[Rfam]
RNA sequence: CGGAAUACAUGAUGAUCUACCUCACCUUGAACUCUCUCACUGAUUCCUUGAUGAAUAUAAAAGAUCUGAUAUUCUG
Numbered sequence: 001c002g003g004a005a006u007a008c009a010u011g012a013u014g015a016u017c018u019a020c021c022u023c024a025c026c027u028u029g030a031a032c033u034c035u036c037u038c039a040c041u042g043a044u045u046c047c048u049u050g051a052u053g054a055a056u057a058u059a060a061a062a063g064a065u066c067u068g069a070u071a072u073u074c075u076g
Stems, first nucleotide, its partner, number of pairs: 001076007